RNA: serC leader
Organism: Paracoccus sp. 228
RNA sequence: CCGUGGGACACCCCUCCCCAACGAGGGGCUUUUUAGCUGGAAGGCUAGUCACA
Numbered sequence: 001c002c003g004u005g006g007g008a009c010a011c012c013c014c015u016c017c018c019c020a021a022c023g024a025g026g027g028g029c030u031u032u033u034u035a036g037c038u039g040g041a042a043g044g045c046u047a048g049u050c051a052c053a
Base pairs, nucleotide, nucleotide: 011028012027013026014025015024016023033048034047035046036045037044038043